[Rfam]
A member of the RNA family "Plant signal recognition particle RNA" from Tetracentron sinense, 308 nucleotides long. Gene Ontology terms of the family: SRP-dependent cotranslational protein targeting to membrane, signal sequence recognition and signal recognition particle, endoplasmic reticulum targeting. On this family, see Wild et al., Curr Opin Struct Biol 2002: "Towards the structure of the mammalian signal recognition particle". A search with the family's covariance model found it, with a score of 204 bits.
RNA sequence: ACCGAGCUCAGUAGCGUGAACUUGUAACCCAAGUGGGGGCAUUAAGUUGGUUGAAAAUGGGUUCGACUCAGACAGGCAGGGUCUGUUGGGGAAACUAGCUGGCUUCGCCCAUUUCAAGUCGAGAGAUGAACCAUGCUGUCCGAACGAAGGCUUGGGUGUCGUGGUCCUUAGUGCGGAGGGUUAAGCGUCAGGCUGGUCUCACAGAGCAGCGAAAACCUCCCGCUCUUGACAGUGGAAGGAUAACGAGCCAGUACUCCUCAGACCCACUUAACGCCCGAAGAGAUGAUCUCAAUCGGACAACCAAUUUU
Number, nucleotide and partner (000 for none) at each position: 001a000002c039003c038004g023005a022006g021007c000008u019009c018010a017011g000012u000013a000014g000015c000016g000017u010018g009019a008020a000021c006022u005023u004024g000025u000026a000027a000028c037029c036030c035031a000032a000033g000034u000035g030036g029037g028038g003039g002040c000041a000042u000043u000044a307045a306046g305047u304048u303049g302050g301051u300052u299053g298054a000055a000056a000057a000058u292059g000060g290061g288062u000063u286064c285065g284066a000067c000068u281069c280070a000071g000072a000073c000074a000075g275076g274077c273078a000079g265080g264081g263082u262083c261084u260085g259086u000087u000088g257089g256090g255091g254092a000093a000094a252095c000096u000097a000098g000099c251100u250101g249102g248103c247104u246105u245106c000107g244108c000109c239110c238111a000112u237113u236114u235115c234116a233117a000118g230119u229120c228121g227122a226123g225124a224125g223126a000127u000128g167129a000130a165131c164132c163133a162134u161135g160136c000137u158138g157139u156140c155141c154142g153143a152144a000145c150146g000147a000148a000149g000150g145151c000152u143153u142154g141155g140156g139157u138158g137159u000160c135161g134162u133163g132164g131165u130166c000167c128168u173169u000170a000171g000172u000173g168174c000175g220176g219177a218178g217179g216180g000181u000182u000183a000184a000185g000186c211187g210188u209189c000190a000191g000192g000193c204194u203195g202196g000197u000198c000199u000200c000201a000202c195203a194204g193205a000206g000207c000208a000209g188210c187211g186212a000213a000214a000215a000216c179217c178218u177219c176220c175221c000222g000223c125224u124225c123226u122227u121228g120229a119230c118231a000232g000233u116234g115235g114236a113237a112238g110239g109240a000241u000242a000243a000244c107245g105246a104247g103248c102249c101250a100251g099252u094253a000254c091255u090256c089257c088258u000259c085260a084261g083262a082263c081264c080265c079266a000267c000268u000269u000270a000271a000272c000273g077274c076275c075276c000277g000278a000279a000280g069281a068282g000283a000284u065285g064286a063287u000288c061289u000290c060291a000292a058293u000294c000295g000296g000297a000298c053299a052300a051301c050302c049303a048304a047305u046306u045307u044308u000